[Rfam]
RNA sequence: UAUGCAACUUACGCCGUUCUUCUUCGCCUUCUUUUUUACCUUCCCCUGAACGGGAGGCUUUCGUCGUGUGAGAAAGAAUGCGAAGACGAAUAACAAGGCCUCCCACUCCGGGGGGCCUUUUUUAU
Numbered sequence: 001u002a003u004g005c006a007a008c009u010u011a012c013g014c015c016g017u018u019c020u021u022c023u024u025c026g027c028c029u030u031c032u033u034u035u036u037u038a039c040c041u042u043c044c045c046c047u048g049a050a051c052g053g054g055a056g057g058c059u060u061u062c063g064u065c066g067u068g069u070g071a072g073a074a075a076g077a078a079u080g081c082g083a084a085g086a087c088g089a090a091u092a093a094c095a096a097g098g099c100c101u102c103c104c105a106c107u108c109c110g111g112g113g114g115g116c117c118u119u120u121u122u123u124a125u
Stems, first nucleotide, its partner, number of pairs: 016091004021086007029078006036071004042055004056065003095119010